A member of the RNA family "Flavo-1 RNA" from Halpernia frigidisoli, 115 nucleotides long. The family's RNA type in Rfam is small RNA.

RNA sequence: UUUUAGCCCCGAUUGAAACGGCAUCCUUUUUUGUUAUUGCGAUUGCGAUCAUUUUCAACGGAUUGCUUCGUUCCUCGCAAUGACAAAAAAGAUAUAGUAGAAAGCGGGUACCAUC
Numbered sequence: 001u002u003u004u005a006g007c008c009c010c011g012a013u014u015g016a017a018a019c020g021g022c023a024u025c026c027u028u029u030u031u032u033g034u035u036a037u038u039g040c041g042a043u044u045g046c047g048a049u050c051a052u053u054u055u056c057a058a059c060g061g062a063u064u065g066c067u068u069c070g071u072u073c074c075u076c077g078c079a080a081u082g083a084c085a086a087a088a089a090a091g092a093u094a095u096a097g098u099a100g101a102a103a104g105c106g107g108g109u110a111c112c113a114u115c
Stems, first nucleotide, its partner, number of pairs: 009107003013103002018098002023093003029088014
The match comes from Rfam's covariance-model search (63 bits).